[Rfam]
RNA sequence: GGCUGGUUUCUGGGUGGAAGACUAGUGAUUUUGUUGUUCUGACUUAUAAUUUAGACAACAAAUCGUAGCCUGCCGCCCAGCGACCACAG
Numbered sequence: 001g002g003c004u005g006g007u008u009u010c011u012g013g014g015u016g017g018a019a020g021a022c023u024a025g026u027g028a029u030u031u032u033g034u035u036g037u038u039c040u041g042a043c044u045u046a047u048a049a050u051u052u053a054g055a056c057a058a059c060a061a062a063u064c065g066u067a068g069c070c071u072g073c074c075g076c077c078c079a080g081c082g083a084c085c086a087c088a089g
Stems, first nucleotide, its partner, number of pairs: 004086005010080008019071002022068002025066007033059006

Background:
The record is an 89-nucleotide RNA sequence from Anolis carolinensis, which matches "mir-7 microRNA precursor family" in Rfam. Rfam describes the family as follows. This family represents the microRNA (miRNA) precursor mir-7. Rfam 15.1 lists 2,589 matches to the family in 797 species. Its family is annotated with miRNA-mediated post-transcriptional gene silencing and RISC complex in the Gene Ontology. On this family, see Lagos-Quintana et al., Science 2001: "Identification of novel genes coding for small expressed RNAs".